[Rfam]
RNA: c-di-AMP riboswitch aptamer (ydaO/yuaA leader)
RNA sequence: AUACAUACUGUGCCGAAUUCCCCGUAUUACUGGGGGAGCGGGGGAACCACGUUGGGUGAAUUGACCUCCUAUUCACAGAGGGGUCAUAGGGGACCUUCAACCGAAUCCUUAAGCUAACCUCGCAGGCCUUGGAAGGAGUUUAA
Number, nucleotide and partner (000 for none) at each position: 001a000002u000003a000004c000005a000006u000007a000008c000009u000010g000011u000012g127013c126014c125015g000016a000017a000018u037019u036020c035021c034022c033023c032024g031025u000026a000027u000028u000029a000030c000031u024032g023033g022034g021035g020036g019037a018038g123039c122040g121041g120042g119043g118044g000045a000046a000047c000048c000049a000050c000051g000052u000053u000054g108055g107056g106057u000058g000059a000060a000061u000062u086063g085064a084065c083066c082067u081068c080069c000070u000071a000072u000073u000074c000075a000076c000077a000078g000079a000080g068081g067082g066083g065084u064085c063086a062087u000088a000089g102090g101091g000092g000093a000094c000095c000096u000097u000098c000099a000100a000101c090102c089103g000104a000105a000106u056107c055108c054109u000110u000111a000112a000113g000114c000115u000116a000117a000118c043119c042120u041121c040122g039123c038124a000125g014126g013127c012128c000129u000130u000131g000132g000133a000134a000135g000136g000137a000138g000139u000140u000141u000142a000143a000